[Rfam]
RNA: mir-142 microRNA precursor family
Nucleotides: 085
Base pairs, nucleotide, nucleotide: 014071015070016069017068018067019066020065021064022063023062026059028057029056030055031054032053033052
Number, partner (000 for none) and nucleotide at each position: 001000c002000a003000g004000u005000a006000c007000a008000c009000u010000c011000a012000u013000c014071c015070a016069u017068a018067a019066a020065g021064u022063a023062g024000g025000a026059a027000a028057c029056a030055c031054u032053a033052c034000a035000c036000u037000g038000u039000g040000u041000a042000g043000a044000g045000a046000c047000g048000u049000u050000u051000a052033g053032u054031a055030g056029u057028g058000c059026u060000g061000u062023c063022u064021a065020c066019u067018u068017u069016a070015u071014g072000a073000g074000u075000g076000a077000c078000u079000g080000c081000a082000c083000u084000g085000u